Source information:
Shown here is a 134-nucleotide sequence from Catellatospora sp. TT07R-123, a member of the family "FMN riboswitch aptamer (RFN element)". The RFN element is a highly conserved domain that is found frequently in the 5'-untranslated regions of prokaryotic mRNAs that encode for flavin mononucleotide (FMN) biosynthesis and transport proteins.
RNA sequence: UUGCGUACUCCGGGGUCGGUGAAACUCCGAACCGGCGGUCACAGUCCGCGAACCCGCACCUCCCCCGAGGGGCGGGCCGAUCCGGUGGAAUUCCGGAACCGACGGUAAAAGUCCGGAUGAGAGGUAGUACGCGG
Numbered sequence: 001u002u003g004c005g006u007a008c009u010c011c012g013g014g015g016u017c018g019g020u021g022a023a024a025c026u027c028c029g030a031a032c033c034g035g036c037g038g039u040c041a042c043a044g045u046c047c048g049c050g051a052a053c054c055c056g057c058a059c060c061u062c063c064c065c066c067g068a069g070g071g072g073c074g075g076g077c078c079g080a081u082c083c084g085g086u087g088g089a090a091u092u093c094c095g096g097a098a099c100c101g102a103c104g105g106u107a108a109a110a111g112u113c114c115g116g117a118u119g120a121g122a123g124g125u126a127g128u129a130c131g132c133g134g
Stems, first nucleotide, its partner, number of pairs: 003132007010123001017029003031112002033101002035049004044099002053076004081097005103115003